[Rfam]
RNA sequence: UUAUGUUGAUUUUUUUGUCGUUGUUUACAGAUAAAUCUUUCGCCAUUUACUAAAGAUUUCCGUGGCCGGGAAUAAAUCGAUGAUUCUAUGGACUUAUUUUUGAGUCUCUGCUUUACUGCGGGGU
Number, nucleotide and partner (000 for none) at each position: 001u000002u000003a000004u082005g081006u000007u000008g000009a073010u072011u071012u000013u070014u069015u068016u000017g066018u065019c064020g063021u000022u000023g000024u000025u000026u000027a000028c000029a000030g000031a000032u000033a059034a058035a057036u056037c055038u054039u053040u052041c000042g000043c000044c000045a000046u000047u000048u000049a000050c000051u000052a040053a039054a038055g037056a036057u035058u034059u033060c000061c000062g000063u020064g019065g018066c017067c000068g015069g014070g013071a011072a010073u009074a000075a000076a000077u000078c000079g000080a000081u005082g004083a000084u000085u000086c000087u000088a000089u000090g000091g000092a000093c000094u000095u000096a000097u000098u000099u000100u000101u000102g000103a000104g124105u000106c123107u122108c121109u120110g119111c118112u000113u000114u000115a000116c000117u000118g111119c110120g109121g108122g107123g106124u104